[Rfam]
RNA sequence: UAAGGAUGCAGAUACCUGAAAGGGUAGACUGAGUACAUAAGGGCACUGAUAAAGAAAUUUAUUAAGCGUGAAUUAAAGCACGCCAGCCUUAUGGGAAGAGCACCGCCGAGGUGUUCUUUUUUUGGAAAAA
Number, nucleotide and partner (000 for none) at each position: 001u000002a000003a000004g000005g000006a000007u033008g000009c031010a030011g029012a000013u026014a025015c024016c023017u022018g000019a000020a000021a000022g017023g016024g015025u014026a013027g000028a000029c011030u010031g009032a000033g007034u000035a000036c093037a092038u091039a090040a089041g088042g000043g000044c000045a000046c086047u085048g084049a062050u061051a060052a059053a058054g000055a000056a000057a000058u053059u052060u051061a050062u049063u000064a000065a000066g083067c082068g081069u080070g079071a000072a000073u000074u000075a000076a000077a000078g000079c070080a069081c068082g067083c066084c048085a047086g046087c000088c041089u040090u039091a038092u037093g036094g120095g119096a118097a117098g116099a115100g114101c113102a112103c111104c000105g000106c000107c000108g000109a000110g000111g103112u102113g101114u100115u099116c098117u097118u096119u095120u094121u000122u000123u000124g000125g000126a000127a000128a000129a000130a000
A member of the RNA family "DUF3800-I RNA", 130 nucleotides long. Rfam classes the family as a small RNA. Actinobacteria, Firmicutes, Fusobacteria, Proteobacteria (1 example), Tenericutes (2 examples).